[Rfam]
RNA: Saccharopolyspora sRNA 389
RNA sequence: ACCAGAUUCGUCGUGGUGCGGUGCAGAAAAUCCUGGCGGGCGUGGCGGACCUUGCGGUGCGCGCGAGCGACCUUGCGCUUGGCUUUGCGGCGGUUGUUCGAGCCGCGCUGCUUGCGGGCCAUCCGUCGCUGAUACCGCGCCAAGUUCCGCGCCUUACGAUCUAGGUGCUUCGGAUUGGCGAUGGUCUCACCGGUCGACAGCACCGCGAAGUCCUUGACUCCGAGAUCCACGCCGAUCGCUUCACCCGUCGGCGGCUGCGGUUCGGGCUCGUCGGUGUCCACGGCGAACGUCACGUACCAGCGCCCGUCCGGCUCACGGGAGACCACCACCAUCGUCGGGUUGAUCGUGGUCGGGUCGACCUCGGGCCACGACCACACGAAACGCAACGGCGUGGUCUGCUUCGCCAGGAACAGCUGGGCGUCGCGGAUGCGGAACGCGCUGCGGGUGUAGUGCGCGGACUGCUUGCCGGUGCGGGACUUGAACCGCGGGUACUUCGCCCGUCCGGCGAAGAAAUUGGAGAACGCGGUGUGCUGGUGCCGCAGCGUUUGCUGCAGCGGCACCGACGACACCUCGGACAGAAACCCCAGGUCCUCGG
Numbered sequence: 001a002c003c004a005g006a007u008u009c010g011u012c013g014u015g016g017u018g019c020g021g022u023g024c025a026g027a028a029a030a031u032c033c034u035g036g037c038g039g040g041c042g043u044g045g046c047g048g049a050c051c052u053u054g055c056g057g058u059g060c061g062c063g064c065g066a067g068c069g070a071c072c073u074u075g076c077g078c079u080u081g082g083c084u085u086u087g088c089g090g091c092g093g094u095u096g097u098u099c100g101a102g103c104c105g106c107g108c109u110g111c112u113u114g115c116g117g118g119c120c121a122u123c124c125g126u127c128g129c130u131g132a133u134a135c136c137g138c139g140c141c142a143a144g145u146u147c148c149g150c151g152c153c154u155u156a157c158g159a160u161c162u163a164g165g166u167g168c169u170u171c172g173g174a175u176u177g178g179c180g181a182u183g184g185u186c187u188c189a190c191c192g193g194u195c196g197a198c199a200g201c202a203c204c205g206c207g208a209a210g211u212c213c214u215u216g217a218c219u220c221c222g223a224g225a226u227c228c229a230c231g232c233c234g235a236u237c238g239c240u241u242c243a244c245c246c247g248u249c250g251g252c253g254g255c256u257g258c259g260g261u262u263c264g265g266g267c268u269c270g271u272c273g274g275u276g277u278c279c280a281c282g283g284c285g286a287a288c289g290u291c292a293c294g295u296a297c298c299a300g301c302g303c304c305c306g307u308c309c310g311g312c313u314c315a316c317g318g319g320a321g322a323c324c325a326c327c328a329c330c331a332u333c334g335u336c337g338g339g340u341u342g343a344u345c346g347u348g349g350u351c352g353g354g355u356c357g358a359c360c361u362c363g364g365g366c367c368a369c370g371a372c373c374a375c376a377c378g379a380a381a382c383g384c385a386a387c388g389g390c391g392u393g394g395u396c397u398g399c400u401u402c403g404c405c406a407g408g409a410a411c412a413g414c415u416g417g418g419c420g421u422c423g424c425g426g427a428u429g430c431g432g433a434a435c436g437c438g439c440u441g442c443g444g445g446u447g448u449a450g451u452g453c454g455c456g457g458a459c460u461g462c463u464u465g466c467c468g469g470u471g472c473g474g475g476a477c478u479u480g481a482a483c484c485g486c487g488g489g490u491a492c493u494u495c496g497c498c499c500g501u502c503c504g505g506c507g508a509a510g511a512a513a514u515u516g517g518a519g520a521a522c523g524c525g526g527u528g529u530g531c532u533g534g535u536g537c538c539g540c541a542g543c544g545u546u547u548g549c550u551g552c553a554g555c556g557g558c559a560c561c562g563a564c565g566a567c568a569c570c571u572c573g574g575a576c577a578g579a580a581a582c583c584c585c586a587g588g589u590c591c592u593c594g595g
Base pairs, nucleotide, nucleotide: 002016003015004014017580019578021576022575023033025031040068041067043065044064045062046061047060049058050057051056069146070145071144073142075140076139077138078137082133084131087129088128089127090126091125092124093123095121096120097118099116100115101112102111103110149213151211152210154208155207157205158204160202162200164198166197170193171192172191173190178188180186181185220574221573223571224570226568232265233264234263235262236260237259238258239257242253244251245250269565270564271563272562273561274560275559276558277557278556281551282550283549284548285547286546287545288544289543290542295536296535297534298533299532300531301530302529304526305525306524307523310351311350312349314346319341320340323337325335326334359471361469362468363467365464367461368460372456373454375452376451377450380446382444387441388440389439390438391437392436393435395433397431398430399429401427402425403424404423407419475515476514478512479511486504487503488502489501490500582594